Notes:
The record is a 350-nucleotide RNA sequence from Flavimaricola marinus, which matches "Alphaproteobacteria transfer-messenger RNA" in Rfam.
[Rfam]
Nucleotides: 350
Base pairs, nucleotide, nucleotide: 040051041050042049043048055185056184057183058182059181065178068173069172070171079163080162083160084159085158089105090104091103092102093101106145107144108143109142110141111140112139186201187200188199189198192211193210195209196208197207316331317330318329319328322347323346324345325344326343327342
Number, partner (000 for none) and nucleotide at each position: 001000g002000a003000c004000c005000u006000u007000g008000c009000g010000c011000c012000g013000a014000a015000c016000c017000g018000a019000u020000g021000u022000g023000a024000a025000g026000c027000c028000u029000a030000u031000g032000u033000a034000g035000a036000g037000c038000u039000u040051g041050u042049c043048c044000u045000u046000c047000g048043g049042g050041a051040c052000u053000a054000u055185g056184g057183a058182c059181a060000u061000a062000a063000a064000c065178g066000c067000g068173c069172u070171c071000g072000u073000a074000a075000u076000a077000a078000g079163c080162g081000g082000a083160u084159c085158g086000g087000a088000c089105c090104c091103g092102g093101g094000g095000g096000c097000g098000g099000u100000a101093c102092c103091c104090g105089g106145c107144g108143g109142c110141u111140c112139c113000a114000c115000c116000a117000u118000c119000a120000a121000c122000c123000u124000u125000u126000a127000u128000u129000g130000g131000a132000g133000g134000c135000a136000g137000a138000u139112g140111g141110g142109g143108c144107c145106g146000a147000a148000a149000c150000a151000g152000g153000a154000u155000c156000g157000a158085c159084g160083a161000a162080c163079g164000u165000c166000u167000a168000a169000a170000g171070g172069g173068g174000a175000u176000g177000u178065c179000u180000u181059u182058g183057u184056c185055u186201c187200g188199g189198u190000g191000a192211g193210g194000u195209a196208c197207c198189a199188c200187c201186g202000u203000u204000a205000u206000c207197g208196g209195u210193c211192c212000g213000a214000u215000u216000u217000g218000u219000a220000c221000a222000g223000u224000u225000g226000c227000c228000a229000a230000u231000a232000a233000c234000a235000a236000c237000c238000g239000u240000g241000c242000u243000c244000c245000g246000g247000c248000u249000a250000u251000g252000g253000c254000u255000c256000u257000g258000g259000c260000u261000g262000c263000u264000u265000a266000a267000g268000c269000a270000g271000u272000c273000c274000g275000a276000g277000u278000u279000g280000c281000c282000g283000a284000a285000a286000c287000u288000a289000a290000g291000c292000c293000c294000u295000u296000g297000c298000g299000c300000c301000u302000a303000g304000c305000c306000g307000c308000g309000u310000a311000a312000g313000g314000c315000g316331g317330g318329g319328u320000u321000c322347g323346c324345a325344g326343g327342c328319a329318c330317c331316u332000g333000g334000c335000a336000a337000c338000a339000g340000a341000a342327g343326c344325c345324u346323g347322c348000a349000c350000u
It is annotated as a non-coding RNA gene. Its family is annotated with RNA catabolic process in the Gene Ontology. Pairs were carried over by alignment from the consensus structure, which is taken from published work. NCBI's taxonomy places the organism under Bacteria, Pseudomonadati, Pseudomonadota, Rhodobacterales, Flavimaricola.